[Rfam]
RNA sequence: GUUACAGACGAACCCUUGUGGGAUUGGAGC
Numbered sequence: 001g002u003u004a005c006a007g008a009c010g011a012a013c014c015c016u017u018g019u020g021g022g023a024u025u026g027g028a029g030c
Base pairs, nucleotide, nucleotide: 011025012024014022015021
RNA: CRISPR RNA direct repeat element